Annotation:
Eukaryotic large subunit ribosomal RNA: a 362-nucleotide part of an RNA from Yarrowia lipolytica. NCBI's taxonomy places the organism under Eukaryota, Fungi, Ascomycota, Saccharomycotina, Yarrowia. The sequence is in the family's curated seed alignment. The base pairs follow the family's consensus structure, which is taken from published work.
RNA sequence: UUGUUGCAAUAGUAAUUGAACUUAGUACGAGAGGAACAGUUCAUUCGGAUAAUUGGUGUUUGCUGCUGUCUGACCAGGCAAUGCAGCGAAGCACCACCCGCUGGGUUAUGGCCGAACGCCUCCAAGUCAGAACCCAUGCCAGAAGGGAAGAAUCAGGGGGAAGGAGGGAUAUGAAGAAGUACCGCAGUACCGGAGGGGGAGGGGGGGUGGAUAAGGAAACCGCCCGCCCCCCCCCGACUGGAAAGACCCACCCUUGUGAAAUCCAUUGUAGACGACUUUAGUAUGCGACGAGGUAUUGUAAGUAGUAGAGUAGCCUUGUUGUUACGAUCUAUUGAGAUUAAGCCUUUGUUGUUUAGAUUCGA
Numbered sequence: 001u002u003g004u005u006g007c008a009a010u011a012g013u014a015a016u017u018g019a020a021c022u023u024a025g026u027a028c029g030a031g032a033g034g035a036a037c038a039g040u041u042c043a044u045u046c047g048g049a050u051a052a053u054u055g056g057u058g059u060u061u062g063c064u065g066c067u068g069u070c071u072g073a074c075c076a077g078g079c080a081a082u083g084c085a086g087c088g089a090a091g092c093a094c095c096a097c098c099c100g101c102u103g104g105g106u107u108a109u110g111g112c113c114g115a116a117c118g119c120c121u122c123c124a125a126g127u128c129a130g131a132a133c134c135c136a137u138g139c140c141a142g143a144a145g146g147g148a149a150g151a152a153u154c155a156g157g158g159g160g161a162a163g164g165a166g167g168g169a170u171a172u173g174a175a176g177a178a179g180u181a182c183c184g185c186a187g188u189a190c191c192g193g194a195g196g197g198g199g200a201g202g203g204g205g206g207g208u209g210g211a212u213a214a215g216g217a218a219a220c221c222g223c224c225c226g227c228c229c230c231c232c233c234c235c236g237a238c239u240g241g242a243a244a245g246a247c248c249c250a251c252c253c254u255u256g257u258g259a260a261a262u263c264c265a266u267u268g269u270a271g272a273c274g275a276c277u278u279u280a281g282u283a284u285g286c287g288a289c290g291a292g293g294u295a296u297u298g299u300a301a302g303u304a305g306u307a308g309a310g311u312a313g314c315c316u317u318g319u320u321g322u323u324a325c326g327a328u329c330u331a332u333u334g335a336g337a338u339u340a341a342g343c344c345u346u347u348g349u350u351g352u353u354u355a356g357a358u359u360c361g362a
Base pairs, nucleotide, nucleotide: 001152002151004149005148007146010141012139013138015045017043018042019041020040021039022038046100047099048098050096054093055092061088062087063086064085065084067080068079069078070077071076102136103135104134109129110128111127112126159255160254260359261358262357263356265279268276285352286351287350288349289348290347291345292344293343295338296337302332303331304330305329307328310325311324312323313322314321